[Rfam]
RNA: PAGEV RNA
RNA sequence: CCUACCUUGGAAUCAAGAUGAUUUGGAGUAGGUCAGGACAGUGUUGUCGAUCAAGGGUAACUGCUAAGGCAACCCAUAAGGCACUUUUUGCAUAAAGUAGAAGCCGCAAGCUUAUAACCGUUUUGAAUGCGGGAUUCGAAUUUUAUAAUGCAAAAGGUGGCGCGUUUGGAGCAGGGGUGGAUAUAUUUAUUAUAUCUGGUAACGCGCAGGGCGU
Numbered sequence: 001c002c003u004a005c006c007u008u009g010g011a012a013u014c015a016a017g018a019u020g021a022u023u024u025g026g027a028g029u030a031g032g033u034c035a036g037g038a039c040a041g042u043g044u045u046g047u048c049g050a051u052c053a054a055g056g057g058u059a060a061c062u063g064c065u066a067a068g069g070c071a072a073c074c075c076a077u078a079a080g081g082c083a084c085u086u087u088u089u090g091c092a093u094a095a096a097g098u099a100g101a102a103g104c105c106g107c108a109a110g111c112u113u114a115u116a117a118c119c120g121u122u123u124u125g126a127a128u129g130c131g132g133g134a135u136u137c138g139a140a141u142u143u144u145a146u147a148a149u150g151c152a153a154a155a156g157g158u159g160g161c162g163c164g165u166u167u168g169g170a171g172c173a174g175g176g177g178u179g180g181a182u183a184u185a186u187u188u189a190u191u192a193u194a195u196c197u198g199g200u201a202a203c204g205c206g207c208a209g210g211g212c213g214u
Stems, first nucleotide, its partner, number of pairs: 001032005007026001043073006062171001064169001083158010100137003104133001160207006179197006